[Rfam]
RNA sequence: GGUAGUAGCAAAUAUUCAAAUGAGAACUUUGAAGACUGAAGUGGAGAAAGGUUCCUAGAGAACAGUAUUUGGUCUAGGGUUAGUCGAUCCUAAGAGAUAGGGAAGCUCCGUUUUAUCAAAGUAGCCAAUUUAUUGGCUCGCCUAUCGAAAGGGAAACCGGUUAAUAUUCCGGUACUAGGAUGAGGAUUCUCUGCGGCAACGCAAAUGAAUUUGGAGACAUCAGUGUGGAUCCCAGGAAGAGUUCUCUUUUCUUUUUAACAGCCUGUGUUUGCCAUGAAAUCAGUUUAGCUGGAGAAAUGGCUAACCGGUUGGUAGAGCAUCGUACUUUUUGCGGUGUCUGGUGCAUUCACAACGAUCCUUGAAAAUCCAAAGGAAAGAUUAAUUUUCUCGCCUAGUCGUACUCAUAACCGCAGCAGGUCUCCAAGGUGGAAAGCCUCUAGUUGA
Number, nucleotide and partner (000 for none) at each position: 001g000002g000003u000004a000005g000006u000007a000008g000009c000010a000011a000012a000013u000014a000015u033016u032017c031018a030019a029020a028021u000022g000023a000024g000025a000026a000027c000028u020029u019030u018031g017032a016033a015034g442035a441036c440037u439038g000039a000040a000041g000042u000043g422044g421045a420046g419047a000048a000049a402050g401051g000052u000053u000054c078055c077056u076057a075058g074059a073060g000061a000062a000063c071064a070065g000066u000067a000068u000069u000070u064071g063072g000073u059074c058075u057076a056077g055078g054079g000080u000081u000082a000083g000084u000085c398086g397087a396088u000089c152090c151091u000092a000093a000094g146095a145096g112097a111098u110099a000100g109101g108102g107103a000104a000105g000106c000107u102108c101109c100110g098111u097112u096113u000114u000115a000116u000117c000118a000119a000120a138121g137122u000123a000124g000125c000126c000127a000128a000129u000130u000131u000132a000133u000134u000135g000136g000137c121138u120139c000140g000141c000142c000143u000144a000145u095146c094147g000148a000149a000150a000151g090152g089153g000154a000155a000156a173157c172158c171159g170160g169161u000162u000163a000164a000165u000166a000167u000168u000169c160170c159171g158172g157173u156174a000175c000176u394177a393178g392179g391180a000181u390182g389183a388184g387185g386186a384187u000188u000189c000190u000191c000192u203193g202194c201195g200196g000197c000198a000199a000200c195201g194202c193203a192204a000205a000206u000207g000208a000209a000210u371211u370212u369213g368214g367215a366216g000217a000218c000219a356220u355221c354222a000223g000224u351225g350226u349227g348228g347229a346230u345231c000232c341233c340234a339235g255236g254237a253238a252239g251240a250241g000242u000243u000244c000245u000246c000247u000248u000249u000250u240251c239252u238253u237254u236255u235256u000257a000258a000259c311260a310261g309262c308263c307264u000265g000266u000267g000268u000269u000270u000271g301272c300273c299274a298275u297276g000277a000278a000279a000280u292281c291282a290283g289284u000285u000286u000287a000288g000289c283290u282291g281292g280293a000294g000295a000296a000297a275298u274299g273300g272301c271302u000303a000304a000305c000306c000307g263308g262309u261310u260311g259312g000313u000314a000315g000316a000317g000318c336319a335320u334321c333322g332323u331324a330325c000326u000327u000328u000329u000330u324331g323332c322333g321334g320335u319336g318337u000338c000339u234340g233341g232342u000343g000344c000345a230346u229347u228348c227349a226350c225351a224352a000353c000354g221355a220356u219357c000358c000359u000360u000361g000362a000363a000364a000365a000366u215367c214368c213369a212370a211371a210372g000373g000374a000375a000376a000377g000378a000379u000380u000381a000382a000383u000384u186385u000386u185387c184388u183389c182390g181391c179392c178393u177394a176395g000396u087397c086398g085399u000400a000401c050402u049403c000404a000405u000406a000407a000408c417409c416410g000411c000412a000413g000414c000415a000416g409417g408418u000419c046420u045421c044422c043423a000424a436425g435426g434427u433428g000429g000430a000431a000432a000433g427434c426435c425436u424437c000438u000439a037440g036441u035442u034443g000444a000